This 131-nucleotide RNA sequence from Vombatus ursinus belongs to the Rfam family "Small nucleolar RNA SNORA24". The base pairs follow the family's consensus structure, which was predicted with RNAfold. ACA24 is a member of the H/ACA class of snoRNA that guide the sites of modification of uridines to pseudouridines. Its family is annotated with nucleolus and RNA processing in the Gene Ontology. The family's RNA type in Rfam is H/ACA-box small nucleolar RNA.

RNA sequence: CUCCAUGAAUCCUUGGGCCCUGCCGGCUGUGGCAGUCUCCCUUCCUAGCCAUGGAAAAGCAUGAUCUUGCUUAUUGGCAAAGCUGUCACCAUCUAAUUGGUAUCAGAUUCUGACUUGUGCAAGUGACACGC
Numbered sequence: 001c002u003c004c005a006u007g008a009a010u011c012c013u014u015g016g017g018c019c020c021u022g023c024c025g026g027c028u029g030u031g032g033c034a035g036u037c038u039c040c041c042u043u044c045c046u047a048g049c050c051a052u053g054g055a056a057a058a059g060c061a062u063g064a065u066c067u068u069g070c071u072u073a074u075u076g077g078c079a080a081a082g083c084u085g086u087c088a089c090c091a092u093c094u095a096a097u098u099g100g101u102a103u104c105a106g107a108u109u110c111u112g113a114c115u116u117g118u119g120c121a122a123g124u125g126a127c128a129c130g131c
Stems, first nucleotide, its partner, number of pairs: 002055006015041003020035005068128002071125001074122003077118004083106003088101004